[Rfam]
RNA sequence: AUCCUCACCUGUCAGGGGAGAUACCAUGAGCACAAAGGUGGUUUUCCUAGAUUGAGGCUCAUCUAUUGCAUCCUGGGUGUGCUGACACCCGAUAUUUCCACAAACAGGGGAGACUCGACUGCACAAUUUGUGUACAUGGGGGACUGAGUUCGCACUUUCCCUGA
Numbered sequence: 001a002u003c004c005u006c007a008c009c010u011g012u013c014a015g016g017g018g019a020g021a022u023a024c025c026a027u028g029a030g031c032a033c034a035a036a037g038g039u040g041g042u043u044u045u046c047c048u049a050g051a052u053u054g055a056g057g058c059u060c061a062u063c064u065a066u067u068g069c070a071u072c073c074u075g076g077g078u079g080u081g082c083u084g085a086c087a088c089c090c091g092a093u094a095u096u097u098c099c100a101c102a103a104a105c106a107g108g109g110g111a112g113a114c115u116c117g118a119c120u121g122c123a124c125a126a127u128u129u130g131u132g133u134a135c136a137u138g139g140g141g142g143a144c145u146g147a148g149u150u151c152g153c154a155c156u157u158u159c160c161c162u163g164a
Stems, first nucleotide, its partner, number of pairs: 013121003016048006023042005050089001052087001054086001056083003060079005094115001095113001096111002099108001137163005143158001146155001148153001
Source information:
Rfam assigns this 164-nucleotide RNA sequence from Pan troglodytes to the family "U1 spliceosomal RNA". NCBI's taxonomy places the organism under Eukaryota, Deuterostomia, Sarcopterygii, Tetrapoda, Pan. Rfam classes the family as a spliceosomal small nuclear RNA. Pairs were carried over by alignment from the consensus structure, which is taken from published work. Rfam describes the family as follows. U1 is a small nuclear RNA (snRNA) component of the spliceosome (involved in pre-mRNA splicing). Its 5' end forms complementary base pairs with the 5' splice junction, thus defining the 5' donor site of an intron. There are significant differences in sequence and secondary structure between metazoan and yeast U1 snRNAs, the latter being much longer (568 nucleotides as compared to 164 nucleotides in human). Nevertheless, secondary structure predictions suggest that all U1 snRNAs share a 'common core' consisting of helices I, II, the proximal region of III, and IV. This family does not contain the larger yeast sequences. A search with the family's covariance model found it, with a score of 93 bits.